[Rfam]
RNA: ylbH leader
Organism: Pullulanibacillus camelliae
RNA sequence: AUAAAAAAAGACCCGCAGGUAUGAGUGCCUGCGGGUGUCCCAUACAUACUUUGUAUGCCAAGACAAUGGGAGAGGAGAAACCGGCGGAAAAACUUAUGGGGAAACGUAAGUCUCCGCGGUUG
Numbered sequence: 001a002u003a004a005a006a007a008a009a010g011a012c013c014c015g016c017a018g019g020u021a022u023g024a025g026u027g028c029c030u031g032c033g034g035g036u037g038u039c040c041c042a043u044a045c046a047u048a049c050u051u052u053g054u055a056u057g058c059c060a061a062g063a064c065a066a067u068g069g070g071a072g073a074g075g076a077g078a079a080a081c082c083g084g085c086g087g088a089a090a091a092a093c094u095u096a097u098g099g100g101g102a103a104a105c106g107u108a109a110g111u112c113u114c115c116g117c118g119g120u121u122g
Stems, first nucleotide, its partner, number of pairs: 011036011039070005045057005082119001084117002087115001089113001092111005